RNA sequence: UGCCGCGGUCCAAGGGGCGAUCUUUCCCAAAGGACUACGAGGGAGAAAGGACCCCACCAAACCCCACCCCUCCCGCCCAAGGCGCACGCUCACUCGCCAGGGUGAACAUCGUCAACUCGGCUGGCGUGGCGCCCGGUUCUGCGUUCUACGCUCAGCGCAGCAACCGCACAAAAGCAACGGCCCUCGGCCGGGACUAGCGAUCCCGAUCGAGGGCCUGACCACCUGGGAAGCAGAACCUUCCCG
Number, nucleotide and partner (000 for none) at each position: 001u000002g000003c000004c000005g000006c000007g223008g222009u221010c000011c000012a000013a000014g000015g000016g077017g076018c075019g074020a000021u000022c000023u000024u000025u000026c000027c000028c000029a000030a000031a000032g000033g000034a000035c000036u000037a000038c000039g000040a000041g000042g000043g000044a000045g000046a000047a000048a000049g000050g000051a000052c000053c000054c000055c000056a000057c000058c000059a000060a000061a000062c000063c000064c000065c000066a000067c000068c000069c000070c000071u000072c000073c000074c019075g018076c017077c016078c000079a000080a000081g000082g000083c000084g000085c000086a000087c000088g000089c000090u105091c104092a103093c102094u101095c100096g000097c000098c000099a000100g095101g094102g093103u092104g091105a090106a000107c000108a000109u000110c000111g000112u000113c000114a000115a000116c000117u000118c000119g000120g156121c155122u154123g153124g152125c000126g000127u000128g000129g000130c000131g000132c000133c000134c000135g000136g000137u000138u000139c000140u000141g000142c000143g000144u000145u000146c000147u000148a000149c000150g000151c000152u124153c123154a122155g121156c120157g000158c000159a000160g000161c000162a000163a000164c000165c000166g000167c000168a000169c000170a000171a000172a000173a000174g000175c000176a000177a000178c000179g215180g214181c213182c212183c211184u000185c209186g208187g000188c000189c000190g204191g203192g202193a201194c000195u000196a000197g000198c000199g000200a000201u193202c192203c191204c190205g000206a000207u000208c186209g185210a000211g183212g182213g181214c180215c179216u000217g000218a000219c000220c000221a009222c008223c007224u000225g000226g241227g240228a239229a238230g237231c000232a000233g000234a000235a000236c000237c230238u229239u228240c227241c226242c000243g000

This 243-nucleotide sequence from Streptomyces cellostaticus belongs to the Rfam family "Streptomyces sRNA 4677".
From the family's description: Located in the intergenic region between anti-sigma factor SCO4677 gene and a putative regulatory protein gene SCO4676. scr4677 expression requires the SCO4677 activity and scr4677 sRNA itself seem to affect the levels of the SCO4676-associated transcripts.
NCBI's taxonomy places the organism under Bacteria, Bacillati, Actinomycetota, Streptomycetaceae, Streptomyces.
The match comes from Rfam's covariance-model search (166 bits).
The family's RNA type in Rfam is small RNA.
For this family Rfam cites "Complex intra-operonic dynamics mediated by a small RNA in Streptomyces coelicolor" (Hindra et al., PLoS One, 2014).